[Rfam]
RNA sequence: GCUGUUUCAGGGUAGGAGAGAGGUGUUACUUCAUGAGAUGCCACCUCUCCCAUCCUCUCCUCUGCAGAAGC
Number, nucleotide and partner (000 for none) at each position: 001g071002c070003u069004g000005u067006u066007u000008c064009a063010g062011g060012g059013u000014a056015g055016g054017a053018g049019a048020g047021a046022g045023g044024u043025g042026u000027u040028a039029c000030u037031u036032c000033a000034u000035g000036a031037g030038a000039u028040g027041c000042c025043a024044c023045c022046u021047c020048u019049c018050c000051c000052a000053u017054c016055c015056u014057c000058u000059c012060c011061u000062c010063u009064g008065c000066a006067g005068a000069a003070g002071c001
Source information
Shown here is a 71-nucleotide sequence from Oxylabes madagascariensis, a member of the family "mir-1759 microRNA precursor family". The base pairs follow the family's consensus structure, which was predicted with RNAalifold. Its family is annotated with RISC complex and miRNA-mediated post-transcriptional gene silencing in the Gene Ontology. NCBI's taxonomy places the organism under Eukaryota, Opisthokonta, Sauria, Theropoda, Oxylabes.